RNA: Guanidine-II riboswitch aptamer (mini-ykkC)
Organism: Oceanicaulis sp. HTCC2633
RNA sequence: CUGAGAGGACGACCUCCCCGCACUCGGGAUCAGCAUUCGGGACGGCCCGA
Numbered sequence: 001c002u003g004a005g006a007g008g009a010c011g012a013c014c015u016c017c018c019c020g021c022a023c024u025c026g027g028g029a030u031c032a033g034c035a036u037u038c039g040g041g042a043c044g045g046c047c048c049g050a
Stems, first nucleotide, its partner, number of pairs: 001020001003018001005016004037050005